[Rfam]
RNA sequence: UUUCCUGAGGAGCGUUGCAACGCACGGCUGGCUGUUUGACCGCCAGACCCGUCGCCAGGCUCGGGGACUUUGAUCGCAGGCUGUCUUUGUCAAUGCGGCUUUCCUUCAACGGCGCUCACCCAAC
Number, nucleotide and partner (000 for none) at each position: 001u000002u067003u066004c065005c064006u063007g062008a061009g000010g000011a000012g000013c000014g000015u000016u000017g000018c000019a000020a000021c054022g053023c000024a052025c051026g050027g049028c000029u000030g000031g000032c000033u000034g000035u000036u000037u000038g000039a000040c000041c000042g000043c000044c000045a000046g000047a000048c000049c027050c026051g025052u024053c022054g021055c000056c000057a000058g000059g000060c000061u008062c007063g006064g005065g004066g003067a002068c000069u000070u000071u000072g000073a000074u000075c000076g000077c000078a000079g000080g000081c000082u000083g000084u000085c000086u000087u000088u000089g000090u000091c000092a000093a000094u000095g000096c000097g000098g000099c000100u000101u000102u000103c000104c000105u000106u000107c000108a000109a000110c000111g000112g000113c000114g000115c000116u000117c000118a000119c000120c000121c000122a000123a000124c000

SAH (S-adenosyl-L-homocysteine) riboswitch aptamer: a 124-nucleotide RNA sequence from Thiomonas sp. X19. The source organism's lineage runs through Bacteria, Pseudomonadota, Betaproteobacteria, Burkholderiales and Thiomonas. It scores 49 bits against the family's covariance model. The base pairs follow the family's consensus structure, which is taken from published work. The literature on the family includes a 2008 paper in Mol Cell by Wang et al., "Riboswitches that sense S-adenosylhomocysteine and activate genes involved in coenzyme recycling".